Rfam assigns this 127-nucleotide sequence from Physeter macrocephalus to the family "Small nucleolar RNA SNORA25". The source organism's lineage runs through Eukaryota, Opisthokonta, Boreoeutheria, Odontoceti and Physeter. The family's consensus secondary structure was predicted with RNAfold. A search with the family's covariance model found it, with a score of 104 bits. ACA25 is a member of the H/ACA class of snoRNA that guide the sites of modification of uridines to pseudouridines. The family has 30 seed sequences and 1,129 matches in Rfam 15.1.
RNA sequence: AGGUUAUUUCAAAGAGGGUCCGUGGGUUUGUGAAACCGGGAGCUCUUAAUGCUAUGACCAAAGAUUAAAAUUCUCCAUAGAAUGUCAUAGGCACUCAGUAGUGCUGCUUUCCUGAAGAGAUGAAAGA
Numbered sequence: 001a002g003g004u005u006a007u008u009u010c011a012a013a014g015a016g017g018g019u020c021c022g023u024g025g026g027u028u029u030g031u032g033a034a035a036c037c038g039g040g041a042g043c044u045c046u047u048a049a050u051g052c053u054a055u056g057a058c059c060a061a062a063g064a065u066u067a068a069a070a071u072u073c074u075c076c077a078u079a080g081a082a083u084g085u086c087a088u089a090g091g092c093a094c095u096c097a098g099u100a101g102u103g104c105u106g107c108u109u110u111c112c113u114g115a116a117g118a119g120a121u122g123a124a125a126g127a
Stems, first nucleotide, its partner, number of pairs: 002059006014047006021040001023039001026037001072120004079113002082110001088106003092103004